[Rfam]
RNA sequence: GACCCAACAUAAGCGCCAGCGCCCCGGCUGUCAGGCUGGGGACGACGAGGUGGGGGGAGAAUCGAAGCCUUCGGCGGGUGCCCCUCCGUGCCGCUCCGGGCGCGUAUUCGGCCGACAAAUAUGCGGGUAACUGCAAAACAAAGGGGCCGGAACCGGGGAAC
Number, nucleotide and partner (000 for none) at each position: 001g000002a000003c000004c000005c000006a000007a000008c000009a000010u000011a000012a000013g000014c000015g000016c000017c000018a000019g000020c000021g000022c041023c040024c039025c038026g037027g036028c034029u000030g000031u000032c000033a000034g028035g000036c027037u026038g025039g024040g023041g022042a000043c000044g000045a000046c000047g000048a000049g000050g000051u000052g000053g086054g085055g084056g083057g082058a000059g000060a000061a000062u074063c073064g072065a071066a000067g000068c000069c000070u000071u065072c064073g063074g062075c000076g000077g000078g000079u000080g000081c000082c057083c056084c055085u054086c053087c104088g103089u102090g101091c100092c099093g000094c000095u000096c000097c000098g000099g092100g091101c090102g089103c088104g087105u000106a000107u151108u150109c149110g148111g147112c146113c145114g000115a000116c000117a000118a000119a000120u000121a000122u135123g134124c133125g132126g131127g000128u000129a000130a000131c126132u125133g124134c123135a122136a000137a000138a000139c000140a000141a000142a000143g000144g000145g113146g112147c111148c110149g109150g108151a107152a000153c000154c000155g000156g000157g000158g000159a000160a000161c000

Rfam assigns this 161-nucleotide RNA sequence from Pseudoflavonifractor sp. AF19-9AC to the family "glmS glucosamine-6-phosphate activated ribozyme aptamer".
Pairs were carried over by alignment from the consensus structure, which is taken from published work.
The family's RNA type in Rfam is riboswitch.
Rfam's curators write: This entry contains a glucosamine-6-phosphate activated ribozyme that is found in the mRNA for GlmS. GlmS is an enzyme that uses fructose-6-phosphate and glutamine to generate glucosamine-6-phosphate.